[Rfam]
RNA sequence: AAACCCUGCGCGGGAGAGACCGGGCGGCCAAUCGCCUCGCCCGGCGCCGAAGGAGCAACUCCUCCCCGGAAACUCUCAGGCACCCAGGACCGCGCGGGGGAG
Numbered sequence: 001a002a003a004c005c006c007u008g009c010g011c012g013g014g015a016g017a018g019a020c021c022g023g024g025c026g027g028c029c030a031a032u033c034g035c036c037u038c039g040c041c042c043g044g045c046g047c048c049g050a051a052g053g054a055g056c057a058a059c060u061c062c063u064c065c066c067c068g069g070a071a072a073c074u075c076u077c078a079g080g081c082a083c084c085c086a087g088g089a090c091c092g093c094g095c096g097g098g099g100g101a102g
Stems, first nucleotide, its partner, number of pairs: 006097008020044008046081003049077002053075003059069002
RNA: Glycine riboswitch aptamer
Organism: Amycolatopsis sp. YIM 10